The family of this 96-nucleotide sequence from Nicotiana sylvestris is "MIR6152 microRNA precursor family". The family has 2 seed sequences and 5,807 matches in Rfam 15.1.
RNA sequence: UGGAUAGAUUAUUGUAUUCGAUUGUAUUCACGGCGUGAAACAGGGGAUUACACAGUUUUUAAACUAAAAGUGAAUCAAUUAACAUAAUAGACUCCU
Number, nucleotide and partner (000 for none) at each position: 001u000002g095003g094004a093005u000006a000007g000008a000009u090010u089011a088012u087013u086014g085015u084016a000017u082018u081019c000020g080021a079022u000023u077024g076025u000026a075027u074028u073029c072030a071031c070032g000033g000034c000035g064036u063037g059038a058039a057040a056041c055042a000043g053044g000045g000046g000047a000048u000049u000050a000051c000052a000053c043054a000055g041056u040057u039058u038059u037060u000061a000062a000063a036064c035065u000066a000067a000068a000069a000070g031071u030072g029073a028074a027075u026076c024077a023078a000079u021080u020081a018082a017083c000084a015085u014086a013087a012088u011089a010090g009091a000092c000093u004094c003095c002096u000
Lineage of the source: Eukaryota > Mesangiospermae > Pentapetalae > lamiids > Nicotiana.